[Rfam]
RNA sequence: CUGUGUCCACUGAUAGAAUAAUUUGCUGUUUUUCUUUUGGUUUAUACUAGGAAGUAAAAGAAAAUAAUCCCUGUGCUUUCUGUCUUUGUGGCAACCCAGACUGAACUGGGGAAUUCAGCU
Numbered sequence: 001c002u003g004u005g006u007c008c009a010c011u012g013a014u015a016g017a018a019u020a021a022u023u024u025g026c027u028g029u030u031u032u033u034c035u036u037u038u039g040g041u042u043u044a045u046a047c048u049a050g051g052a053a054g055u056a057a058a059a060g061a062a063a064a065u066a067a068u069c070c071c072u073g074u075g076c077u078u079u080c081u082g083u084c085u086u087u088g089u090g091g092c093a094a095c096c097c098a099g100a101c102u103g104a105a106c107u108g109g110g111g112a113a114u115u116c117a118g119c120u
Stems, first nucleotide, its partner, number of pairs: 002056003006052003011046002014044002016034003020030003068112006076103001079100004084090001
Shown here is a 120-nucleotide RNA sequence from Sciurus vulgaris, a member of the family "Small nucleolar RNA SNORA31". It scores 81 bits against the family's covariance model.